This 77-nucleotide RNA sequence from Hylemonella gracilis belongs to the Rfam family "SAH (S-adenosyl-L-homocysteine) riboswitch aptamer".
RNA sequence: UCCUCCAAGGAGCGUUGCAGCGCACCCGAAUGUGCGUCAGGCUUGGAGCCUACUUUUCGCAACGACGCUCACCUGAC
Dot-bracket structure: ..((((((............(((((......)))))......)))))).............................
Background
The match comes from Rfam's covariance-model search (60 bits).